[Rfam]
RNA sequence: GCCGGGUUGGUGGAAGGGUAUACACGGAUGUCUCAAACACAUCUGCUCGAAAGAGCAUGCGGGUUCGAAUCCCGCACUCGGCA
Numbered sequence: 001g002c003c004g005g006g007u008u009g010g011u012g013g014a015a016g017g018g019u020a021u022a023c024a025c026g027g028a029u030g031u032c033u034c035a036a037a038c039a040c041a042u043c044u045g046c047u048c049g050a051a052a053g054a055g056c057a058u059g060c061g062g063g064u065u066c067g068a069a070u071c072c073c074g075c076a077c078u079c080g081g082c083a
Stems, first nucleotide, its partner, number of pairs: 001082007010025003027043005059075005
A member of the RNA family "tRNA" from Streptomyces fulvorobeus, 83 nucleotides long. Lineage of the source: Bacteria > Actinomycetota > Kitasatosporales > Streptomycetaceae > Streptomyces. It is annotated as a transfer RNA. A search with the family's covariance model found it, with a score of 52 bits.